[Rfam]
RNA sequence: UUACUCUGGUUUCCCUUCAAAACGUAUAAAUCUUUCGCCUUUUACUAAAGAUUUCCGUGGAGGGGAACACUCAAAUGAGUCUUACUCAAUUUUUAACGUCCUACGUUCGUAGGGC
Dot-bracket structure: ..((((..(((((((((((........((((((((...........))))))))...)))))))))))........))))..................((((((....)))))).